[Rfam]
RNA: SAM riboswitch aptamer (S box leader)
RNA sequence: CUCUUAUUACGAGAGGCUGAGGGAAUAGGCCCUGCGACGCCCAGCAACCCCUGCUUAUGCAGAAAGGUGCUAAAUCCUACAGAUGUGAUAUCUGAGAGAUAAGAG
Numbered sequence: 001c002u003c004u005u006a007u008u009a010c011g012a013g014a015g016g017c018u019g020a021g022g023g024a025a026u027a028g029g030c031c032c033u034g035c036g037a038c039g040c041c042c043a044g045c046a047a048c049c050c051c052u053g054c055u056u057a058u059g060c061a062g063a064a065a066g067g068u069g070c071u072a073a074a075u076c077c078u079a080c081a082g083a084u085g086u087g088a089u090a091u092c093u094g095a096g097a098g099a100u101a102a103g104a105g
Base pairs, nucleotide, nucleotide: 001105002104003103004102005101006100007099008098013042015041016040017039021032022031023030026079027078028077029076043071044070045069046068048067049066051062052061053060075097080094081093082092083091084090085089